[Rfam]
RNA sequence: AUGUCCUCUUGAGUUCCCUUUAACGCUUCAUUGUUCAUACUUAUCUACCGAUACAUCAAUGUAAUGAACACUGAAGUGUUUGGGGGGACUCUAGGUGGCAU
Numbered sequence: 001a002u003g004u005c006c007u008c009u010u011g012a013g014u015u016c017c018c019u020u021u022a023a024c025g026c027u028u029c030a031u032u033g034u035u036c037a038u039a040c041u042u043a044u045c046u047a048c049c050g051a052u053a054c055a056u057c058a059a060u061g062u063a064a065u066g067a068a069c070a071c072u073g074a075a076g077u078g079u080u081u082g083g084g085g086g087g088a089c090u091c092u093a094g095g096u097g098g099c100a101u
Stems, first nucleotide, its partner, number of pairs: 005097001007095003011091010022081002024078007032070004